[Rfam]
RNA sequence: UAGCUCAGUCGGUAGCGCAGUUGACUUUUAAUCAAUUGGUCGCAGGUUCGAGCCGAGCGAAGCGAGACAACAGCGCGUAAGCGCUGGCCCGAAGGGCGAGGCCGUAGGCCGAGUCAUCCUGCACGACCCACCA
Numbered sequence: 001u002a003g004c005u006c007a008g009u010c011g012g013u014a015g016c017g018c019a020g021u022u023g024a025c026u027u028u029u030a031a032u033c034a035a036u037u038g039g040u041c042g043c044a045g046g047u048u049c050g051a052g053c054c055g056a057g058c059g060a061a062g063c064g065a066g067a068c069a070a071c072a073g074c075g076c077g078u079a080a081g082c083g084c085u086g087g088c089c090c091g092a093a094g095g096g097c098g099a100g101g102c103c104g105u106a107g108g109c110c111g112a113g114u115c116a117u118c119c120u121g122c123a124c125g126a127c128c129c130a131c132c133a
Stems, first nucleotide, its partner, number of pairs: 015124001017122004022116001037098002040096002047093004054064002071086006
This 133-nucleotide RNA from Photorhabdus laumondii belongs to the Rfam family "RtT RNA". Gene Ontology term of the family: cellular response to amino acid starvation. On this family, see Bosl and Kersten, Nucleic Acids Res 1991: "A novel RNA product of the tyrT operon of Escherichia coli". The sequence is in the family's curated seed alignment. By type it is a cis-regulatory element.